Shown here is a 60-nucleotide RNA from Bifidobacterium adolescentis, a member of the family "msiK RNA".
The source organism's lineage runs through Bacteria, Bacillati, Actinomycetota, Actinomycetes and Bifidobacterium adolescentis.
The family's consensus secondary structure is taken from published work.
RNA sequence: AACAAAAAUCCCUUUACAACGGAUCGUGAGGCACGUACCUGCCUCUGAAAGGAUGACAAA
Number, nucleotide and partner (000 for none) at each position: 001a000002a000003c000004a000005a000006a000007a000008a000009u000010c052011c051012c000013u049014u048015u047016a046017c000018a000019a000020c000021g000022g000023a000024u000025c000026g000027u000028g045029a044030g043031g042032c041033a040034c000035g000036u000037a000038c000039c000040u033041g032042c031043c030044u029045c028046u016047g015048a014049a013050a000051g011052g010053a000054u000055g000056a000057c000058a000059a000060a000